This 61-nucleotide sequence from Acidovorax sp. JS42 belongs to the Rfam family "nhaA-I RNA". From the family's description: Acidobacteria, Alphaproteobacteria, Betaproteobacteria and Gammaproteobacteria, Verrucomicrobia, cand. division NC10. NCBI's taxonomy places the organism under Bacteria, Betaproteobacteria, Burkholderiales, Comamonadaceae, Acidovorax. It is one of the family's seed sequences.

[Rfam]
RNA sequence: GGGUGUCCACCGCAUGGGGCGGCAGGGCAGGAUUGUUGCAGCGCAGGUCGGGCCGCCUGCG
Dot-bracket structure: ....((((.((.........))..)))).............(((((((......)))))))
Numbered sequence: 001g002g003g004u005g006u007c008c009a010c011c012g013c014a015u016g017g018g019g020c021g022g023c024a025g026g027g028c029a030g031g032a033u034u035g036u037u038g039c040a041g042c043g044c045a046g047g048u049c050g051g052g053c054c055g056c057c058u059g060c061g
Stems, first nucleotide, its partner, number of pairs: 005028004010022002042061007